This 97-nucleotide sequence from Odoribacter sp. CAG:788 belongs to the Rfam family "TPP riboswitch aptamer (THI element)". Pairs were carried over by alignment from the consensus structure, which is taken from published work. Its family is annotated with thiamine pyrophosphate binding in the Gene Ontology. The source organism's lineage runs through Bacteria, Pseudomonadati, Bacteroidota, Bacteroidales and Odoribacter.
[Rfam]
RNA sequence: UCCGGAAAAAGGGGGUGCCUCUUUCAUGAGGCUGAGAUUAUACCCGAUGAACCUGAUACGGUUAGUACCGUCGUAGGGAGUUUUUUUGAGUAUCCGA
Numbered sequence: 001u002c003c004g005g006a007a008a009a010a011g012g013g014g015g016u017g018c019c020u021c022u023u024u025c026a027u028g029a030g031g032c033u034g035a036g037a038u039u040a041u042a043c044c045c046g047a048u049g050a051a052c053c054u055g056a057u058a059c060g061g062u063u064a065g066u067a068c069c070g071u072c073g074u075a076g077g078g079a080g081u082u083u084u085u086u087u088g089a090g091u092a093u094c095c096g097a
Base pairs, nucleotide, nucleotide: 006085007084008083009082010081012045013044014043016040017032018031019030020029021028052077053076054075055074058071059070060069061068